[Rfam]
RNA sequence: UAUCUCUCCGUACGGGGAAGGAUGAGAAGCUUCGACUAAGGUUCGAUUCGAGCGCAGCGAGAAAGCGUUGCCGUAGGCAACGACCCGAAGGGCGAAGCGCGCAGCGCUGAGUAAUCCUUCCCCCGUCAUCC
Dot-bracket structure: ..............(((((((.(.........((.((....((((...((.......))......((((((.....))))))...)))).))))...................).))))))).........